The family of this 140-nucleotide RNA sequence from Lactococcus fujiensis is "PyrR binding site".
The family has 41 seed sequences and 1,498 matches in Rfam 15.1.
It is annotated as a cis-regulatory element.
About the family: This family represents the PyrR binding site and terminator structure.
[Rfam]
RNA sequence: AAAACUUUUAAUCUAGUCCAGAGAGGCUAGCAAGGUUGUGAACGGGAUAUUAAAAUUCUAUCAGGAGGACAGUUUCUGUCUGGACUGACAGAAUACAUUUUGGUACACAUCUGCUAGGUUUCUGGCAGAUGUUUUUUUGU
Dot-bracket structure: ..((((((....((((((......)))))).))))))................(.(((...((((((.....))))))...))).)..................(.(((((((((((....))))))))))).)......

Source information: NCBI's taxonomy places the organism under Bacteria, Bacillati, Bacillota, Lactobacillales, Lactococcus fujiensis. A search with the family's covariance model found it, with a score of 68 bits.